[Rfam]
RNA sequence: UGACGUCUUCAGGGCGGGGUGCGAUUCCCCACCGGCGGUAGGCACGGCGCGCCCGUGCGAGCCCGCGAGCGCCUCCGCCAUGCGGAGGGUCAGCAGACCCGGUCCGAUGCCGGGGCCGACGGUCGGGGUCGAAGGAUCCCGGAAAGUCCGGAUGGAAGAAGACGACG
Number, nucleotide and partner (000 for none) at each position: 001u000002g000003a000004c164005g163006u162007c161008u160009u159010c158011a000012g000013g000014g000015c000016g000017g029018g028019g027020u000021g000022c000023g000024a000025u000026u000027c019028c018029c017030c000031a000032c000033c118034g117035g066036c065037g064038g063039u000040a000041g000042g000043c000044a000045c000046g000047g000048c000049g000050c000051g000052c000053c000054c000055g000056u000057g000058c000059g000060a000061g116062c115063c038064c037065g036066c035067g000068a000069g094070c093071g000072c000073c000074u000075c000076c000077g000078c000079c000080a000081u000082g000083c000084g000085g000086a000087g000088g000089g000090u000091c000092a000093g070094c069095a000096g000097a000098c114099c113100c112101g111102g110103u000104c000105c000106g000107a000108u000109g000110c102111c101112g100113g099114g098115g062116c061117c034118g033119a000120c150121g149122g148123u000124c000125g000126g000127g000128g000129u000130c000131g000132a000133a000134g000135g000136a000137u000138c000139c000140c000141g000142g000143a000144a000145a000146g000147u000148c122149c121150g120151g000152a000153u000154g000155g000156a000157a000158g010159a009160a008161g007162a006163c005164g004165a000166c000167g000

Shown here is a 167-nucleotide sequence from Lysobacter sp. N42, a member of the family "FMN riboswitch aptamer (RFN element)". A search with the family's covariance model found it, with a score of 80 bits. About the family: The RFN element is a highly conserved domain that is found frequently in the 5'-untranslated regions of prokaryotic mRNAs that encode for flavin mononucleotide (FMN) biosynthesis and transport proteins.